[Rfam]
RNA sequence: GCGCUCAGGAUACGGAAUGGGCCCGCGUAGCGGCCCGUGGGCCGGAUACCCUGGCGGCGUGCGGGCCCGACGAAGCGGGUUCGCAAAGCCGACAGCCGUCGCACCAGGGAGACGCCCCAUG
Numbered sequence: 001g002c003g004c005u006c007a008g009g010a011u012a013c014g015g016a017a018u019g020g021g022c023c024c025g026c027g028u029a030g031c032g033g034c035c036c037g038u039g040g041g042c043c044g045g046a047u048a049c050c051c052u053g054g055c056g057g058c059g060u061g062c063g064g065g066c067c068c069g070a071c072g073a074a075g076c077g078g079g080u081u082c083g084c085a086a087a088g089c090c091g092a093c094a095g096c097c098g099u100c101g102c103a104c105c106a107g108g109g110a111g112a113c114g115c116c117c118c119a120u121g
Base pairs, nucleotide, nucleotide: 060085061084062083063082065080066079067078068077088102089101091100092099093098